Small nucleolar RNA SNORD103/SNORD85: an 86-nucleotide RNA from Penelope pileata.
Rfam links the family to the GO terms nucleolus and RNA processing.
The family's RNA type in Rfam is C/D-box small nucleolar RNA.
Rfam 15.1 lists 1,349 matches to the family in 595 species.
The match comes from Rfam's covariance-model search (68 bits).
A reference for the family is Vitali et al. (2003), "Identification of 13 novel human modification guide RNAs", Nucleic Acids Res.
[Rfam]
RNA sequence: UCUGGCAGUGAUGACACACUUGCCCUCUCUGAGAACAGUGCUUGCUAAUGAGAGAAGCUUUAUGUACUCAGCAGAGCUGAGCCAGG
Numbered sequence: 001u002c003u004g005g006c007a008g009u010g011a012u013g014a015c016a017c018a019c020u021u022g023c024c025c026u027c028u029c030u031g032a033g034a035a036c037a038g039u040g041c042u043u044g045c046u047a048a049u050g051a052g053a054g055a056a057g058c059u060u061u062a063u064g065u066a067c068u069c070a071g072c073a074g075a076g077c078u079g080a081g082c083c084a085g086g
Stems, first nucleotide, its partner, number of pairs: 001086006